Alphaproteobacteria transfer-messenger RNA: a 372-nucleotide sequence from Falsochrobactrum shanghaiense. By type it is a non-coding RNA gene. Rfam's curators write: Bacterial tmRNA, also known as 10Sa RNA or SsrA, is named for its dual tRNA and mRNA-like properties. Its role is to liberate the mRNA from a stalled ribosome.
[Rfam]
RNA sequence: CCUCUUCCAAUCGCAAGCCGGCGCACCUAUAUAGGCAGUGCUGGCGCAAGUCAGCUAUGGCGAUAAAUGGACGAUGUAAUAACCCCAUUGGACCCGGGGGCGGUACCCGGCGCCUCCACCACAAUGCAGCUCACCUGAUAUAAGCGGGCUGCACUGCGGCGGGGGCGAAACAGGAUCGACAAGGGCGUAAAGAUCGAUCUUUUGCUCGGCAUGAUACCACCGUUAUCGGGUCAAUUGAGUAGUUGCAAAUGACAACAAAGCUCAGGGUUACGCUCUCGCUGCCUAAUGGCGGUGCGGGAAACCCACUCUAAGCCCUUAGGGUUAGCACCUUAAGGCGGGGUUCGGAGGCACCUGGCAACAGAAGCCUCCACU
Number, nucleotide and partner (000 for none) at each position: 001c000002c000003u000004c000005u000006u000007c000008c000009a000010a000011u000012c000013g000014c000015a000016a000017g000018c000019c000020g000021g000022c000023g000024c000025a000026c000027c000028u000029a000030u000031a000032u000033a000034g000035g000036c000037a000038g000039u000040g055041c054042u053043g052044g051045c000046g000047c000048a000049a000050g000051u044052c043053a042054g041055c040056u000057a000058u000059g206060g205061c204062g203063a202064u000065a000066a000067a000068u000069g199070g198071a000072c196073g195074a194075u193076g000077u000078a000079a000080u000081a000082a000083c000084c185085c184086c183087a000088u182089u181090g180091g000092a000093c000094c110095c109096g108097g107098g106099g000100g000101c000102g000103g000104u000105a000106c098107c097108c096109g095110g094111c167112g166113c165114c164115u163116c162117c161118a000119c000120c000121a000122c000123a000124a000125u000126g000127c000128a000129g000130c000131u000132c000133a000134c000135c000136u000137g000138a000139u000140a000141u000142a000143a000144g000145c000146g000147g000148g000149c000150u000151g000152c000153a000154c000155u000156g000157c000158g000159g000160c000161g117162g116163g115164g114165g113166c112167g111168a000169a000170a000171c000172a000173g000174g000175a000176u000177c000178g000179a000180c090181a089182a088183g086184g085185g084186c000187g000188u000189a000190a000191a000192g000193a075194u074195c073196g072197a000198u070199c069200u000201u000202u063203u062204g061205c060206u059207c222208g221209g220210c000211a000212u233213g232214a231215u000216a000217c229218c228219a000220c209221c208222g207223u000224u000225a000226u000227c000228g218229g217230g000231u214232c213233a212234a000235u000236u000237g000238a000239g000240u000241a000242g000243u000244u000245g000246c000247a000248a000249a000250u000251g000252a000253c000254a000255a000256c000257a000258a000259a000260g000261c000262u000263c000264a000265g000266g000267g000268u000269u000270a000271c000272g000273c000274u000275c000276u000277c000278g000279c000280u000281g000282c000283c000284u000285a000286a000287u000288g000289g000290c000291g000292g000293u000294g000295c000296g000297g000298g000299a000300a000301a000302c000303c000304c000305a000306c000307u000308c000309u000310a000311a000312g000313c000314c000315c000316u000317u000318a000319g000320g000321g000322u000323u000324a000325g000326c000327a000328c000329c000330u000331u000332a000333a000334g000335g000336c000337g000338g353339g352340g351341u350342u000343c000344g369345g368346a367347g366348g365349c364350a341351c340352c339353u338354g000355g000356c000357a000358a000359c000360a000361g000362a000363a000364g349365c348366c347367u346368c345369c344370a000371c000372u000
Annotation: Lineage of the source: Bacteria > Pseudomonadota > Alphaproteobacteria > Hyphomicrobiales > Falsochrobactrum. The base pairs follow the family's consensus structure, which is taken from published work.